[Rfam]
RNA sequence: GGCACAAACUUGAAGUAGAGUAGUUUAGUAGGGUUAGAUGAUCUUUUUAAUCUACUCUUCUUCAAAUUUGUGCCC
Numbered sequence: 001g002g003c004a005c006a007a008a009c010u011u012g013a014a015g016u017a018g019a020g021u022a023g024u025u026u027a028g029u030a031g032g033g034u035u036a037g038a039u040g041a042u043c044u045u046u047u048u049a050a051u052c053u054a055c056u057c058u059u060c061u062u063c064a065a066a067u068u069u070g071u072g073c074c075c
Stems, first nucleotide, its partner, number of pairs: 001074008011064005017058007025050004030045001032043004
Dot-bracket structure: ((((((((..(((((.(((((((.((((.(.((((....)))).).)))).))))))).)))))..)))))))).

Rfam assigns this 75-nucleotide sequence from Haemonchus placei to the family "mir-5928 microRNA precursor family". The family's consensus secondary structure was predicted with RNAalifold.